[Rfam]
RNA sequence: ACGUCCUGCCUCGUGAUCGUCUUCUCAACCUUCACCCGGCAGGCGGAUGGACGGAGGACCCCCGCGAGGACAUGACUCGCGGGGGUUCUCC
Dot-bracket structure: .((.((((((..((((..((.......))..))))..)))))))).......((((((((((((((((.......))))))))))))))))
RNA: sodF sRNA
Organism: Streptomyces pratensis